The family of this 75-nucleotide RNA sequence from Rhizophagus sp. MUCL 43196 is "HDV ribozyme from F. prausnitzii".
Rfam links the family to the GO term catalytic activity.
The family has 48 seed sequences and 3,803 matches in Rfam 15.1.
For this family Rfam cites "Widespread occurrence of self-cleaving ribozymes" (Webb et al., Science, 2009).
The source organism's lineage runs through Eukaryota, Opisthokonta, Glomeromycotina, Glomerales and Rhizophagus.

RNA sequence: CCUGAACGAAGCUUGCCACCUCUACGUGGUGUUCAGGAGUAACAGUUGUAUGCUUAUAACUGGCCAAGAGCAAGC
Numbered sequence: 001c002c003u004g005a006a007c008g009a010a011g012c013u014u015g016c017c018a019c020c021u022c023u024a025c026g027u028g029g030u031g032u033u034c035a036g037g038a039g040u041a042a043c044a045g046u047u048g049u050a051u052g053c054u055u056a057u058a059a060c061u062g063g064c065c066a067a068g069a070g071c072a073a074g075c
Base pairs, nucleotide, nucleotide: 001037002036003035004034005033006032007031018030019029020028043062044061045060046059047058048057049056050055